Overview: U1 spliceosomal RNA: a 165-nucleotide RNA from Capitella teleta.

[Rfam]
RNA sequence: AUACUUACCUGGUGCAGGGGACACCAUGAUCCUCAAGGUGGUUCCCCCAUCGUGAGGCUUGCUCAUUGCACCUACGAGUGGGCUGACCGGUGCGAUCACCCCAAAUGUGGGUGACUCGGGCGCGUCAUUUUUGCUAGUGGGGGACUGCGUUCGCGCUAUCCCCUG
Numbered sequence: 001a002u003a004c005u006u007a008c009c010u011g012g013u014g015c016a017g018g019g020g021a022c023a024c025c026a027u028g029a030u031c032c033u034c035a036a037g038g039u040g041g042u043u044c045c046c047c048c049a050u051c052g053u054g055a056g057g058c059u060u061g062c063u064c065a066u067u068g069c070a071c072c073u074a075c076g077a078g079u080g081g082g083c084u085g086a087c088c089g090g091u092g093c094g095a096u097c098a099c100c101c102c103a104a105a106u107g108u109g110g111g112u113g114a115c116u117c118g119g120g121c122g123c124g125u126c127a128u129u130u131u132u133g134c135u136a137g138u139g140g141g142g143g144a145c146u147g148c149g150u151u152c153g154c155g156c157u158a159u160c161c162c163c164u165g
Stems, first nucleotide, its partner, number of pairs: 012123004017047005023042005049091004054087001056084003060080005093118003096114003100110002139164006147156003
NCBI's taxonomy places the organism under Eukaryota, Protostomia, Annelida, Scolecida, Capitella. A search with the family's covariance model found it, with a score of 143 bits.